[Rfam]
The family of this 78-nucleotide RNA sequence from Clupea harengus is "Small nucleolar RNA SNORD72". The base pairs follow the family's consensus structure. A reference for the family is Huttenhofer et al. (2001), "RNomics: an experimental approach that identifies 201 candidates for novel, small, non-messenger RNAs in mouse", EMBO J. Taxonomically the source falls in Clupea (Eukaryota, Bilateria, Deuterostomia, Teleostei). It scores 72 bits against the family's covariance model. snoRNA HBII-240 belongs to the CD family of snoRNAs.
RNA sequence: UGCUCUCCAGUGAUGUGUAAAAUAUAAAUGUCUGAACAAAUGAUAUCCCGUGAUUUCAACCUUAUACUGAGGAGAGCU
Numbered sequence: 001u002g003c004u005c006u007c008c009a010g011u012g013a014u015g016u017g018u019a020a021a022a023u024a025u026a027a028a029u030g031u032c033u034g035a036a037c038a039a040a041u042g043a044u045a046u047c048c049c050g051u052g053a054u055u056u057c058a059a060c061c062u063u064a065u066a067c068u069g070a071g072g073a074g075a076g077c078u
Stems, first nucleotide, its partner, number of pairs: 002077007